RNA sequence: UCUCCAUCUGAAUCAGUGAGUUCAAUGGAGA
Dot-bracket structure: (((((((.((((((...).))))))))))))
Iron response element II: a 31-nucleotide RNA from Cavia porcellus. Gene Ontology term of the family: response to iron ion. IRE, TFRC, SLC40A1, SDHB, SLC11A2, CDC42BPA, ACO2, ALAS2_H.SAPIENS, CDC14A, EPAS1, ALAS2, qoxD, Hao1, NDUFS1, transferrin, Aconitate.